[Rfam]
A member of the RNA family "RT-2 RNA", 242 nucleotides long.
RNA sequence: AAGGGCCAGAUCAAGUAAGUCUGAAAAGUCCGAAAGGAGCGCCCUGGCAGGAAGGAGAAAGCAAGCGAGCGGAUACCCUGCGGGGUAUGGAGCUGAUUUUGCAUGAUGAUGCCAACGUGCGGACGCUGCUUGCAUGGCGGGCAGAUUGUGCCAAACUCCCGUUUCAUGCACGGAUGGCAAAGCGGAUAGACGGGCACGCUACAAAAAUGCCGUACAUCAUGCCAACCAUUGUCGCCCGAAUA
Numbered sequence: 001a002a003g004g005g006c007c008a009g010a011u012c013a014a015g016u017a018a019g020u021c022u023g024a025a026a027a028g029u030c031c032g033a034a035a036g037g038a039g040c041g042c043c044c045u046g047g048c049a050g051g052a053a054g055g056a057g058a059a060a061g062c063a064a065g066c067g068a069g070c071g072g073a074u075a076c077c078c079u080g081c082g083g084g085g086u087a088u089g090g091a092g093c094u095g096a097u098u099u100u101g102c103a104u105g106a107u108g109a110u111g112c113c114a115a116c117g118u119g120c121g122g123a124c125g126c127u128g129c130u131u132g133c134a135u136g137g138c139g140g141g142c143a144g145a146u147u148g149u150g151c152c153a154a155a156c157u158c159c160c161g162u163u164u165c166a167u168g169c170a171c172g173g174a175u176g177g178c179a180a181a182g183c184g185g186a187u188a189g190a191c192g193g194g195c196a197c198g199c200u201a202c203a204a205a206a207a208u209g210c211c212g213u214a215c216a217u218c219a220u221g222c223c224a225a226c227c228a229u230u231g232u233c234g235c236c237c238g239a240a241u242a
Stems, first nucleotide, its partner, number of pairs: 004043003019030001073088006101222008110214001111178003115175001116172005125133002136163006182213004188208001189200001